[Rfam]
RNA sequence: AAACAACAAUACGGGUGCUGGGGCUUUGCCCCGGCUGAGAUGCCACUUACUCUGGCAAACCGUUGAACUUGAUCCGGGUAAUACCGGCGUAUAAGGAAGGAAUACUUGUGACCA
Numbered sequence: 001a002a003a004c005a006a007c008a009a010u011a012c013g014g015g016u017g018c019u020g021g022g023g024c025u026u027u028g029c030c031c032c033g034g035c036u037g038a039g040a041u042g043c044c045a046c047u048u049a050c051u052c053u054g055g056c057a058a059a060c061c062g063u064u065g066a067a068c069u070u071g072a073u074c075c076g077g078g079u080a081a082u083a084c085c086g087g088c089g090u091a092u093a094a095g096g097a098a099g100g101a102a103u104a105c106u107u108g109u110g111a112c113c114a
Stems, first nucleotide, its partner, number of pairs: 010098001011063004016057001017035007042056004068095004074087004